[Rfam]
RNA: Y RNA
RNA sequence: GGCUGAUCUGAGCGCAGUGGUGUUUACAAUUAAUUGAUCACAUCCAGUUACAGAUUUCUUUGCUCCUUCUCCACUCCCACUGUUUCGCUUGACUAGCCUAAA
Numbered sequence: 001g002g003c004u005g006a007u008c009u010g011a012g013c014g015c016a017g018u019g020g021u022g023u024u025u026a027c028a029a030u031u032a033a034u035u036g037a038u039c040a041c042a043u044c045c046a047g048u049u050a051c052a053g054a055u056u057u058c059u060u061u062g063c064u065c066c067u068u069c070u071c072c073a074c075u076c077c078c079a080c081u082g083u084u085u086c087g088c089u090u091g092a093c094u095a096g097c098c099u100a101a102a
Base pairs, nucleotide, nucleotide: 001098002097003096004095005094007092008091010090011089014086016081017080018079019078020077022076028064030062032060033059